[Rfam]
c-di-GMP-I riboswitch aptamer: an 87-nucleotide sequence from Methylophaga muralis. The base pairs follow the family's consensus structure, which is taken from published work.
RNA sequence: CGUUAUUAAAGCCAAACUUGUCGUGAGGCAAGGUCGGAAAGCUACAGAUCUUCAUAGUUUAAUUUUGAAGAUGGCUGGGUUGCAUUG
Number, nucleotide and partner (000 for none) at each position: 001c000002g000003u000004u000005a000006u000007u000008a000009a000010a000011g000012c037013c036014a000015a000016a000017c032018u031019u030020g029021u028022c027023g000024u000025g000026a000027g022028g021029c020030a019031a018032g017033g000034u000035c000036g013037g012038a000039a000040a081041g080042c079043u078044a000045c077046a076047g075048a072049u071050c070051u000052u000053c000054a000055u000056a065057g064058u000059u000060u000061a000062a000063u000064u057065u056066u000067g000068a000069a000070g050071a049072u048073g000074g000075c047076u046077g045078g043079g042080u041081u040082g000083c000084a000085u000086u000087g000